[Rfam]
RNA sequence: GGGCGCGUAGCUCAGUGGGAGAGCACCCGCCUUACAAGCGGGGGGUCGUAGGUUCGAAACCUACCGCGCCCA
Numbered sequence: 001g002g003g004c005g006c007g008u009a010g011c012u013c014a015g016u017g018g019g020a021g022a023g024c025a026c027c028c029g030c031c032u033u034a035c036a037a038g039c040g041g042g043g044g045g046u047c048g049u050a051g052g053u054u055c056g057a058a059a060c061c062u063a064c065c066g067c068g069c070c071c072a
Base pairs, nucleotide, nucleotide: 001071002070003069004068005067006066007065010024011023012022013021026042027041028040029039030038048064049063050062051061052060
RNA: tRNA
Organism: Actinoplanes cyaneus